[Rfam]
RNA sequence: UUAGAGUUUCUUCAUUUUCUUCUGAAAUUUUUCUGGGAUUGUUGUUGUUAAAGGUUGAUGGAGAUGAUAUGAAGAUGAAGAAGAGAGGGAG
Numbered sequence: 001u002u003a004g005a006g007u008u009u010c011u012u013c014a015u016u017u018u019c020u021u022c023u024g025a026a027a028u029u030u031u032u033c034u035g036g037g038a039u040u041g042u043u044g045u046u047g048u049u050a051a052a053g054g055u056u057g058a059u060g061g062a063g064a065u066g067a068u069a070u071g072a073a074g075a076u077g078a079a080g081a082a083g084a085g086a087g088g089g090a091g
Stems, first nucleotide, its partner, number of pairs: 007083013037056004042051002